[Rfam]
RNA: ylbH leader
RNA sequence: GUUAAAAAAAGCCUGCAGAAAUAAUCUGCAGGCCCUUUUUAGUUUCUGUAUAUUUAGAAACUAAAAAGGCAAAGGGAGAGGAGAAACCGGAGGAAGAACUUAUGGGGAAACGUAAGUCUUCUCCGUCU
Number, nucleotide and partner (000 for none) at each position: 001g000002u000003u000004a000005a000006a000007a000008a000009a000010a000011g033012c032013c031014u030015g029016c028017a027018g026019a025020a000021a000022u000023a000024a000025u019026c018027u017028g016029c015030a014031g013032g012033c011034c076035c075036u074037u073038u072039u000040u000041a000042g000043u060044u059045u058046c057047u056048g055049u000050a000051u000052a000053u000054u000055u048056a047057g046058a045059a044060a043061c000062u000063a000064a000065a000066a000067a000068g000069g000070c000071a000072a038073a037074g036075g035076g034077a000078g000079a000080g000081g000082a000083g000084a000085a000086a000087c000088c125089g124090g123091a122092g000093g121094a120095a119096g118097a000098a117099c116100u115101u114102a113103u000104g000105g000106g000107g000108a000109a000110a000111c000112g000113u102114a101115a100116g099117u098118c096119u095120u094121c093122u091123c090124c089125g088126u000127c000128u000